The family of this 163-nucleotide sequence from Callithrix jacchus is "U1 spliceosomal RNA". Rfam 15.1 lists 40,184 matches to the family in 1,499 species. Rfam classes the family as a spliceosomal small nuclear RNA. Lineage of the source: Eukaryota > Tetrapoda > Simiiformes > Cebidae > Callithrix.
RNA sequence: ACGCUUACCUGGCAGGGGAGAUACCAUGAUCACAAAGGUGGUUUUCCCAAAGCAAGCUUAUCCAUUGUACUGCAGAUGUGUUGACCCCUGUGAUUUCCCCAAAUGUGGGAAACUCAACUGCAUAAUCUAUGAUAGUGGGGGACUGUGCUCAUGCUUUCCCCUG
Number, nucleotide and partner (000 for none) at each position: 001a000002c000003g000004c000005u000006u000007a000008c000009c000010u000011g000012g121013c120014a119015g118016g048017g047018g046019a045020g044021a043022u000023a042024c041025c040026a039027u038028g000029a000030u000031c000032a000033c000034a000035a000036a000037g000038g027039u026040g025041g024042u023043u021044u020045u019046c018047c017048c016049a089050a000051a000052g086053c000054a000055a082056g081057c080058u000059u078060a077061u076062c075063c000064a000065u000066u000067g000068u000069a000070c000071u000072g000073c000074a000075g062076a061077u060078g059079u000080g057081u056082u055083g000084a000085c000086c052087c000088c000089u049090g000091u116092g115093a114094u112095u111096u110097c000098c108099c107100c000101a000102a000103a000104u000105g000106u000107g099108g098109g000110a096111a095112a094113c000114u093115c092116a091117a000118c015119u014120g013121c012122a000123u000124a000125a000126u000127c000128u000129a000130u000131g000132a000133u000134a000135g000136u000137g162138g161139g160140g159141g158142a157143c000144u000145g154146u153147g152148c000149u000150c000151a000152u147153g146154c145155u000156u000157u142158c141159c140160c139161c138162u137163g000